[Rfam]
RNA sequence: AUAACGUUGAUGUUUUUGGAAUAAGUUUUAGGGACGUGGGGGCAGUACCCACCACCUCCACCAUAAACACAUUAAGCAUAUUAUUGGUAGUGUGCUUAUGAUGGGGGUGAACUAGGAUCGACCGGAAUGUAAAGAAAAACGGAGUUGUUCGGCGGAAGCUCGGUUAACGCAACAAAACUACAAAUGCAGAUGAAAAUCUAGCACUUGCGGCCUAA
Numbered sequence: 001a002u003a004a005c006g007u008u009g010a011u012g013u014u015u016u017u018g019g020a021a022u023a024a025g026u027u028u029u030a031g032g033g034a035c036g037u038g039g040g041g042g043c044a045g046u047a048c049c050c051a052c053c054a055c056c057u058c059c060a061c062c063a064u065a066a067a068c069a070c071a072u073u074a075a076g077c078a079u080a081u082u083a084u085u086g087g088u089a090g091u092g093u094g095c096u097u098a099u100g101a102u103g104g105g106g107g108u109g110a111a112c113u114a115g116g117a118u119c120g121a122c123c124g125g126a127a128u129g130u131a132a133a134g135a136a137a138a139a140c141g142g143a144g145u146u147g148u149u150c151g152g153c154g155g156a157a158g159c160u161c162g163g164u165u166a167a168c169g170c171a172a173c174a175a176a177a178c179u180a181c182a183a184a185u186g187c188a189g190a191u192g193a194a195a196a197u198c199u200a201g202c203a204c205u206u207g208c209g210g211c212c213u214a215a
Base pairs, nucleotide, nucleotide: 001148002147003146004145005144014138015137016136017135026127027126028125031123032122036052037051038050039049040048053109054108055107056106057105058104059103149163150162151161152160
Rfam assigns this 215-nucleotide RNA sequence from Crocinitomicaceae bacterium TMED45 to the family "permuted transfer-messenger RNA". The source organism's lineage runs through Bacteria, Bacteroidota, Flavobacteriia, Flavobacteriales and Crocinitomicaceae. From the family's description: Bacterial tmRNA, also known as 10Sa RNA or SsrA, is named for its dual tRNA and mRNA-like properties. It is one of the family's seed sequences. Pairs were carried over by alignment from the consensus structure, which is taken from published work.